[Rfam]
RNA sequence: CUCGCAAGUUUGAGGCCACAGUAGAAGCACUCAUGGCGUAGUCCUGUCAGAUUUCAGCGAAUCUCUGAAUUCUGCU
Dot-bracket structure: ...........[.[[[...(((((((((.........)).]]]]....((((((....)))))).....)))))))
Source information: Shown here is a 76-nucleotide sequence from Alligator mississippiensis, a member of the family "Mammalian CPEB3 ribozyme". The base pairs follow the family's consensus structure, which is taken from published work. A search with the family's covariance model found it, with a score of 40 bits. Taxonomically the source falls in Alligator (Eukaryota, Sauria, Alligatoridae, Alligatorinae).